A member of the RNA family "TPP riboswitch aptamer (THI element)" from Rhodoferax ferrireducens, 95 nucleotides long. From the family's description: Vitamin B(1) in its active form thiamin pyrophosphate (TPP) is an essential coenzyme that is synthesised by coupling of pyrimidine and thiazole moieties in bacteria. The family's consensus secondary structure is taken from published work. Rfam links the family to the GO term thiamine pyrophosphate binding.
[Rfam]
RNA sequence: CGUGCUUGCUAGAGGUGUCGCCUGCGGGUGACUGAGACAUACUCUUUGAACCUGAUCUGGGUCGUACCAGCGUAGGGAAGCUUCAUUUUUUCCUU
Dot-bracket structure: .......(((((((.((((((......)))))......)..)))).....((((..((((......))))..))))..)))..............
Numbered sequence: 001c002g003u004g005c006u007u008g009c010u011a012g013a014g015g016u017g018u019c020g021c022c023u024g025c026g027g028g029u030g031a032c033u034g035a036g037a038c039a040u041a042c043u044c045u046u047u048g049a050a051c052c053u054g055a056u057c058u059g060g061g062u063c064g065u066a067c068c069a070g071c072g073u074a075g076g077g078a079a080g081c082u083u084c085a086u087u088u089u090u091u092c093c094u095u
Stems, first nucleotide, its partner, number of pairs: 008081003011045004016039001017032005051076004057070004